The family of this 112-nucleotide sequence from Streptococcus mutans is "PyrR binding site".
By type it is a cis-regulatory element.
The base pairs follow the family's consensus structure, which is taken from published work.
About the family: This family represents the PyrR binding site and terminator structure. This RNA structure is found upstream of a variety of genes involved in pyrimidine biosynthesis and transport. The alignment also includes a portion of the antiterminator structure.
Rfam 15.1 lists 1,498 matches to the family in 930 species.
The organism belongs to Streptococcus mutans, within Bacteria.
On this family, see Bonner et al., Nucleic Acids Res 2001: "Molecular recognition of pyr mRNA by the Bacillus subtilis attenuation regulatory protein PyrR".
RNA sequence: UAUUCCUUUAACACUGUCCCGUGAGGCAGGCAAGGAGCGACAAAGAAAAAAGUGCAGGAACAACUGUACUUAUAUUUUGUGAAAUCUCCUUGUAUGAGGAGAUUUUUUCUUA
Numbered sequence: 001u002a003u004u005c006c007u008u009u010a011a012c013a014c015u016g017u018c019c020c021g022u023g024a025g026g027c028a029g030g031c032a033a034g035g036a037g038c039g040a041c042a043a044a045g046a047a048a049a050a051a052g053u054g055c056a057g058g059a060a061c062a063a064c065u066g067u068a069c070u071u072a073u074a075u076u077u078u079g080u081g082a083a084a085u086c087u088c089c090u091u092g093u094a095u096g097a098g099g100a101g102a103u104u105u106u107u108u109c110u111u112a
Stems, first nucleotide, its partner, number of pairs: 003037006014029005044077003048073001050071008081106011